[Rfam]
RNA: HIV-1 stem-loop 3 Psi packaging signal
RNA sequence: UGACUAGCGGAGGCUAGGAGGAG
Number, nucleotide and partner (000 for none) at each position: 001u000002g000003a000004c017005u016006a015007g014008c013009g000010g000011a000012g000013g008014c007015u006016a005017g004018g000019a000020g000021g000022a000023g000